[Rfam]
This 36-nucleotide RNA sequence belongs to the Rfam family "DUF805b RNA". It is annotated as a cis-regulatory element.
RNA sequence: UAGGCAGUAUCCGAAAAGCCUUCAAUAGAGUAGGAG
Numbered sequence: 001u002a003g004g005c006a007g008u009a010u011c012c013g014a015a016a017a018g019c020c021u022u023c024a025a026u027a028g029a030g031u032a033g034g035a036g
Stems, first nucleotide, its partner, number of pairs: 002021004010035003
The base pairs follow the family's consensus structure, which is taken from published work.